RNA: Ruegeria cis52 sRNA
Organism: Pseudaminobacter soli
RNA sequence: UCCGCAGCGCAUGCCUGAUCACCACCUUCGGGAAGCUCAGGCCCUUGAGUCGCGCCGUGCGGAUAUACUGCUGCGUCAUCACCUCGACCAUCGAGGCGCGCGUCAUCCGCGCGAUGUAGCCGAUGCCGUAGAUCGCCAUCGUCAUCACCGGCAGAGUGAAGUUGUAGAAGGUGAUGC
Numbered sequence: 001u002c003c004g005c006a007g008c009g010c011a012u013g014c015c016u017g018a019u020c021a022c023c024a025c026c027u028u029c030g031g032g033a034a035g036c037u038c039a040g041g042c043c044c045u046u047g048a049g050u051c052g053c054g055c056c057g058u059g060c061g062g063a064u065a066u067a068c069u070g071c072u073g074c075g076u077c078a079u080c081a082c083c084u085c086g087a088c089c090a091u092c093g094a095g096g097c098g099c100g101c102g103u104c105a106u107c108c109g110c111g112c113g114a115u116g117u118a119g120c121c122g123a124u125g126c127c128g129u130a131g132a133u134c135g136c137c138a139u140c141g142u143c144a145u146c147a148c149c150g151g152c153a154g155a156g157u158g159a160a161g162u163u164g165u166a167g168a169a170g171g172u173g174a175u176g177c
Stems, first nucleotide, its partner, number of pairs: 003141002006139001009136002014131001016128002020125002028123004038113001041110002046105003051100004055075001059071004082096005146176002148173001151172002154165001156163001